[Rfam]
RNA sequence: CGCGGUGCAGUAAAUGGUCUGCACUAAGGGCUGAAUGGAGCCGCACGG
Numbered sequence: 001c002g003c004g005g006u007g008c009a010g011u012a013a014a015u016g017g018u019c020u021g022c023a024c025u026a027a028g029g030g031c032u033g034a035a036u037g038g039a040g041c042c043g044c045a046c047g048g
Stems, first nucleotide, its partner, number of pairs: 004025007029042004
Rfam assigns this 48-nucleotide sequence to the family "gut-2 RNA". Rfam's curators put it in the seed alignment. The family's RNA type in Rfam is small RNA. The base pairs follow the family's consensus structure, which is taken from published work.